[Rfam]
RNA sequence: GGCCUCCCUCUGCUGGGUGAUCGAUCAGAGAGCCCCCGCUGAUCUAUCACCCCGCAGAGGGAGGCC
Numbered sequence: 001g002g003c004c005u006c007c008c009u010c011u012g013c014u015g016g017g018u019g020a021u022c023g024a025u026c027a028g029a030g031a032g033c034c035c036c037c038g039c040u041g042a043u044c045u046a047u048c049a050c051c052c053c054g055c056a057g058a059g060g061g062a063g064g065c066c
Stems, first nucleotide, its partner, number of pairs: 001066013015052007023044006030037001
RNA: mir-9242 microRNA precursor family
Organism: Cnephaeus nilssonii